[Rfam]
RNA: Plastid-ycf2 5UTR RNA
Organism: Trapa natans
RNA sequence: CGUGCAUCCAGUAGGAAUUGAACCUACACAAUCGCCAAUUAUGAGUUGGGUGCUUUUUCCAUUCAGCCAUGGAUGC
Numbered sequence: 001c002g003u004g005c006a007u008c009c010a011g012u013a014g015g016a017a018u019u020g021a022a023c024c025u026a027c028a029c030a031a032u033c034g035c036c037a038a039u040u041a042u043g044a045g046u047u048g049g050g051u052g053c054u055u056u057u058u059c060c061a062u063u064c065a066g067c068c069a070u071g072g073a074u075g076c
Stems, first nucleotide, its partner, number of pairs: 004076006011027005041070003045067008